[Rfam]
RNA sequence: AAAGACUCCCAUUAACACAGUUGUUCCCCAACCAGGUGCUACUUUACCGUAUUCAGAGUUU
Numbered sequence: 001a002a003a004g005a006c007u008c009c010c011a012u013u014a015a016c017a018c019a020g021u022u023g024u025u026c027c028c029c030a031a032c033c034a035g036g037u038g039c040u041a042c043u044u045u046a047c048c049g050u051a052u053u054c055a056g057a058g059u060u061u
Stems, first nucleotide, its partner, number of pairs: 017045001019043003023039002026036002

Rfam assigns this 61-nucleotide sequence from Waterburya agarophytonicola to the family "Plastid-psbN 5UTR RNA". NCBI's taxonomy places the organism under Bacteria, Cyanophyceae, Pleurocapsales, Waterburya, Waterburya agarophytonicola. The family has 63 seed sequences and 2,345 matches in Rfam 15.1. Plastid psbN is a non-coding RNA (ncRNA) recognised in plastids. It was reported as a conserved 11 stem-loop in the prime untranslated region (5UTR) of psbN genes. It has been reported that the motif is retained in a subset of mature transcripts in barley, which can suggests a possible role in transcript alternative 5 prime processing. It is annotated as a cis-regulatory element.